[Rfam]
RNA sequence: UCGGUUCCGGUUCACGUAUCCCGCGCUCCAGCGGUGUGCGACCCGGCGACC
Numbered sequence: 001u002c003g004g005u006u007c008c009g010g011u012u013c014a015c016g017u018a019u020c021c022c023g024c025g026c027u028c029c030a031g032c033g034g035u036g037u038g039c040g041a042c043c044c045g046g047c048g049a050c051c
Stems, first nucleotide, its partner, number of pairs: 003051003007046004015040005021034003

Description
The family of this 51-nucleotide RNA from Pilimelia anulata is "L31-Actinobacteria ribosomal protein leader". It is one of the family's seed sequences. It is annotated as a cis-regulatory leader. NCBI's taxonomy places the organism under Bacteria, Actinomycetes, Micromonosporales, Micromonosporaceae, Pilimelia.